[Rfam]
RNA sequence: GCCCUGGUCCGGGCCCCUCUGGCAGCCGAGGCGUCGGCUGUGAUGUCGGACAUCACCU
Numbered sequence: 001g002c003c004c005u006g007g008u009c010c011g012g013g014c015c016c017c018u019c020u021g022g023c024a025g026c027c028g029a030g031g032c033g034u035c036g037g038c039u040g041u042g043a044u045g046u047c048g049g050a051c052a053u054c055a056c057c058u
Stems, first nucleotide, its partner, number of pairs: 007051006022041008

terC RNA: a 58-nucleotide sequence from Aerophototrophica crusticola.
By type it is a cis-regulatory element.
Rfam 15.1 lists 1,112 matches to the family in 772 species.
NCBI's taxonomy places the organism under Bacteria, Pseudomonadati, Rhodospirillales, Rhodospirillaceae, Aerophototrophica.